[Rfam]
Nitrogen stress-induced RNA 8: a 171-nucleotide RNA sequence from Nostoc sp. T09. It scores 96 bits against the family's covariance model. Rfam links the family to the GO term heterocyst differentiation. It is annotated as a small RNA.
RNA sequence: AUAAAAAUUGAAAAGAUUAACCGGAUUACAACAUCAAAUACGGCACAAAUAACCGUUUUUUAGUUCGUAUCCUUGAUAAUCUUGACAACCUAUUUAAUUUAUUUGUGUAAUUUUUCCAGAGUCCAAGGUGUAUUACCACUUUCAAGCUAUCUCGGCGGGAUAAUACCCGUC
Number, nucleotide and partner (000 for none) at each position: 001a111002u110003a000004a108005a000006a106007a000008u088009u087010g086011a000012a000013a083014a082015g081016a080017u078018u000019a000020a000021c000022c000023g072024g071025a070026u069027u000028a065029c000030a000031a064032c063033a000034u000035c000036a060037a059038a058039u000040a056041c055042g054043g000044c000045a000046c000047a000048a000049a000050u000051a000052a000053c000054c042055g041056u040057u000058u038059u037060u036061u000062a000063g032064u031065u028066c000067g000068u000069a026070u025071c024072c023073u000074u000075g000076a000077u000078a017079a000080u016081c015082u014083u013084g000085a000086c010087a009088a008089c000090c000091u000092a000093u000094u000095u000096a000097a000098u000099u000100u000101a000102u000103u000104u000105g000106u006107g000108u004109a000110a002111u001112u000113u000114u000115u000116c000117c000118a000119g150120a148121g147122u146123c000124c000125a142126a141127g140128g139129u138130g137131u000132a000133u000134u000135a000136c000137c130138a129139c128140u127141u126142u125143c000144a000145a000146g122147c121148u120149a000150u119151c000152u000153c000154g171155g170156c169157g168158g167159g166160a000161u000162a000163a000164u000165a000166c159167c158168c157169g156170u155171c154